[Rfam]
Rfam assigns this 133-nucleotide RNA to the family "Small nucleolar RNA SNORA64/SNORA10 family". Its Rfam clan is "SNORA64 clan". Rfam classes the family as an H/ACA-box small nucleolar RNA.
RNA sequence: GGUCUCUCAGCUCUGCUUAACCACACGGGUCCAGUGUGUGCUUGGCGUGUUUUCAGGGAGGCAGAGAAAGGCUCUCCUAAUGCACGACAGACCCGCCCAGAAUGGCCUCUCUGUUCCUAGGAGUGUGACAAUU
Numbered sequence: 001g002g003u004c005u006c007u008c009a010g011c012u013c014u015g016c017u018u019a020a021c022c023a024c025a026c027g028g029g030u031c032c033a034g035u036g037u038g039u040g041c042u043u044g045g046c047g048u049g050u051u052u053u054c055a056g057g058g059a060g061g062c063a064g065a066g067a068a069a070g071g072c073u074c075u076c077c078u079a080a081u082g083c084a085c086g087a088c089a090g091a092c093c094c095g096c097c098c099a100g101a102a103u104g105g106c107c108u109c110u111c112u113g114u115u116c117c118u119a120g121g122a123g124u125g126u127g128a129c130a131a132u133u
Base pairs, nucleotide, nucleotide: 003065004064005063007061008060011058012057013056014055015054019043020042022040023039024038025037026036074123075122076121077120078119080118082116089112090111091110095106096105097104

The family has 9 seed sequences and 703 matches in Rfam 15.1. Rfam describes the family as follows. This family belongs to the H/ACA class of small nucleolar RNAs (snoRNAs) which act as guides in the the modification of uridines to pseudouridines. This family includes the human snoRNAs U64 and ACA10 and mouse MBI-29.